Shown here is a 181-nucleotide RNA sequence from Pantoea vagans, a member of the family "Gammaproteobacterial sRNA STnc100".
A search with the family's covariance model found it, with a score of 78 bits.
[Rfam]
RNA sequence: GCAACCUGCUAAUAUGAUAAUAUUGCUAUGAAUCCCCCUAUGCGGAGGGGCGUCAGCUUUACUCCCAAGAUCGGUCUCAAGCGGUAAGUAUUGGCUGGUACUUAUCACCGGGAGGCACCCGGCAUAGCAAUUCCAAAUUCACGUAUAUAAGGGCUCGCUUCGGCGAGCCUUUAUCGUUUUC
Numbered sequence: 001g002c003a004a005c006c007u008g009c010u011a012a013u014a015u016g017a018u019a020a021u022a023u024u025g026c027u028a029u030g031a032a033u034c035c036c037c038c039u040a041u042g043c044g045g046a047g048g049g050g051c052g053u054c055a056g057c058u059u060u061a062c063u064c065c066c067a068a069g070a071u072c073g074g075u076c077u078c079a080a081g082c083g084g085u086a087a088g089u090a091u092u093g094g095c096u097g098g099u100a101c102u103u104a105u106c107a108c109c110g111g112g113a114g115g116c117a118c119c120c121g122g123c124a125u126a127g128c129a130a131u132u133c134c135a136a137a138u139u140c141a142c143g144u145a146u147a148u149a150a151g152g153g154c155u156c157g158c159u160u161c162g163g164c165g166a167g168c169c170u171u172u173a174u175c176g177u178u179u180u181c
Stems, first nucleotide, its partner, number of pairs: 007135002023129001025128006035050005057073001077081001083106004088101003108122005143181001145179001149172009
Dot-bracket structure: ......((..............(.((((((....(((((......)))))......(...............)...(...).((((.(((........))).)))).(((((.....))))))))))))....)).......(.(...(((((((((......)))))))))......).)
By type it is a small RNA.